[Rfam]
Nucleotides: 140
Base pairs, nucleotide, nucleotide: 010127011126012125013124014123015122016121018119019118021116022115023114024113025112026111027110028109029108030107031106032105033104034103035102037100038099039098040097041096042095043094044093045092046091
Number, partner (000 for none) and nucleotide at each position: 001000u002000a003000u004000a005000a006000a007000c008000g009000u010127u011126c012125c013124u014123u015122g016121a017000c018119g019118g020000u021116u022115c023114c024113u025112u026111u027110c028109c029108g030107a031106a032105a033104g034103g035102g036000c037100g038099c039098c040097u041096u042095g043094a044093a045092a046091a047000g048000c049000g050000u051000u052000u053000c054000a055000u056000g057000a058000a059000u060000g061000a062000a063000a064000u065000c066000a067000g068000c069000u070000c071000a072000u073000u074000u075000u076000u077000c078000a079000u080000u081000c082000a083000u084000g085000a086000a087000a088000c089000u090000u091046u092045u093044u094043u095042c096041a097040a098039g099038g100037c101000a102035c103034c104033c105032u106031u107030u108029c109028g110027g111026a112025a113024a114023g115022g116021a117000a118019c119018c120000c121016u122015c123014a124013a125012g126011g127010a128000a129000c130000g131000u132000u133000u134000a135000u136000a137000a138000a139000u140000a